This 56-nucleotide sequence from Sesamum indicum belongs to the Rfam family "Plastid-ccsA-ndhD-1 3UTR RNA". The literature on the family includes a 2023 paper in Plant Commun by Richter et al., "Retrograde signaling in plants: A critical review focusing on the GUN pathway and beyond". By type it is a cis-regulatory element. From the family's description: Plastid-ccsA-ndhD-1 is a non-coding RNA (ncRNA) recognised in plastids. It was found in the three prime untranslated region (3UTR) of ccsA and ndhD genes, its 3UTR location suggests a role in transcript maturation. Pairs were carried over by alignment from the consensus structure, which was predicted with LocARNA. Lineage of the source: Eukaryota > Viridiplantae > Streptophytina > Tracheophyta > Sesamum.

RNA sequence: GAACUGGCGAGAACCCGGUGAAUCAAAUAUUGUAGUGAUUCACCGGGUUCUCGCCA
Numbered sequence: 001g002a003a004c005u006g007g008c009g010a011g012a013a014c015c016c017g018g019u020g021a022a023u024c025a026a027a028u029a030u031u032g033u034a035g036u037g038a039u040u041c042a043c044c045g046g047g048u049u050c051u052c053g054c055c056a
Base pairs, nucleotide, nucleotide: 007054008053009052010051011050012049013048014047015046016045017044018043019042020041021040022039023038024037025036